This 185-nucleotide RNA sequence from Caenorhabditis briggsae belongs to the Rfam family "Small nucleolar RNA U3".
Gene Ontology terms of the family: RNA processing and nucleolus.
Rfam describes the family as follows. Small nucleolar RNAs (snoRNAs) are involved in the processing and modification of rRNA in the nucleolus.
The literature on the family includes a 2010 paper in RNA Biol by Marz and Stadler, "Comparative analysis of eukaryotic U3 snoRNA".
RNA sequence: GAGACCAUACUAUACAGAAUCAUUUCUGCAGUAUGUAUCUCGUAAUUCCCAUCAAAUUGGUAGAGAUGCCAUCCGCGAUGAAUGGGAGACGGGCUUGCCGCGAGCGUGAAACAGUUCUUCGGAACUUGAUGACCGCACGGAGCCGAUUCAUUUUGGAGCCGUAGUGGCUAGCUCUUCUGAGCGGA
Numbered sequence: 001g002a003g004a005c006c007a008u009a010c011u012a013u014a015c016a017g018a019a020u021c022a023u024u025u026c027u028g029c030a031g032u033a034u035g036u037a038u039c040u041c042g043u044a045a046u047u048c049c050c051a052u053c054a055a056a057u058u059g060g061u062a063g064a065g066a067u068g069c070c071a072u073c074c075g076c077g078a079u080g081a082a083u084g085g086g087a088g089a090c091g092g093g094c095u096u097g098c099c100g101c102g103a104g105c106g107u108g109a110a111a112c113a114g115u116u117c118u119u120c121g122g123a124a125c126u127u128g129a130u131g132a133c134c135g136c137a138c139g140g141a142g143c144c145g146a147u148u149c150a151u152u153u154u155g156g157a158g159c160c161g162u163a164g165u166g167g168c169u170a171g172c173u174c175u176u177c178u179g180a181g182c183g184g185a
Stems, first nucleotide, its partner, number of pairs: 001041004006035006015028005047062001049060003072185005091174005097168005104136003114125004139160002143156003